[Rfam]
RNA: Lysine riboswitch aptamer
Nucleotides: 195
Stems, first nucleotide, its partner, number of pairs: 006190006016079007024071001030064008083113012114140004119136006142180005
Number, partner (000 for none) and nucleotide at each position: 001000c002000a003000a004000g005000c006190c007189a008188g009187a010186a011185g012000a013000g014000g015000c016079g017078c018077g019076u020075c021074g022073c023000c024071c025000a026000a027000g028000c029000a030064g031063u032062g033061u034060g035059u036058u037057u038000g039000a040000g041000g042000a043000u044000c045000c046000g047000u048000a049000u050000c051000c052000a053000g054000c055000g056000a057037g058036a059035a060034c061033a062032c063031a064030u065000c066000a067000g068000g069000g070000g071024g072000u073022g074021c075020g076019a077018c078017g079016c080000c081000g082000a083113g084112g085111u086110g087109g088108u089107g090106c091105a092104a093103c094102a095000c096000g097000c098000g099000g100000a101000g102094u103093g104092u105091u106090g107089u108088g109087c110086u111085g112084u113083c114140g115139g116138c117137u118000g119136c120135a121134g122133g123132g124131g125000c126000u127000g128000a129000a130000u131124c132123c133122u134121c135120u136119g137117g138116g139115u140114u141000g142180u143179c144178a145177c146176c147000a148000g149000a150000a151000g152000c153000g154000u155000c156000c157000g158000c159000a160000g161000u162000c163000g164000g165000a166000c167000g168000u169000u170000u171000c172000g173000c174000a175000a176146g177145g178144u179143g180142a181000a182000g183000u184000g185011c186010u187009u188008u189007u190006g191000g192000u193000g194000a195000c